[Rfam]
RNA sequence: UGGUAGAUGCACCCUGAUAACUAAUUUCCCCUGGUAGGCUAACACCCACUGGGGGUUUUUUGU
Numbered sequence: 001u002g003g004u005a006g007a008u009g010c011a012c013c014c015u016g017a018u019a020a021c022u023a024a025u026u027u028c029c030c031c032u033g034g035u036a037g038g039c040u041a042a043c044a045c046c047c048a049c050u051g052g053g054g055g056u057u058u059u060u061u062g063u
Stems, first nucleotide, its partner, number of pairs: 002013003028055008037046002

Source information:
The family of this 63-nucleotide RNA sequence from Anabaena cylindrica is "Nitrogen stress-induced RNA 1". The source organism's lineage runs through Bacteria, Bacillati, Nostocaceae, Anabaena and Anabaena cylindrica. For this family Rfam cites "Heterocyst-specific transcription of NsiR1, a non-coding RNA encoded in a tandem array of direct repeats in cyanobacteria" (Ionescu et al., J Mol Biol, 2010).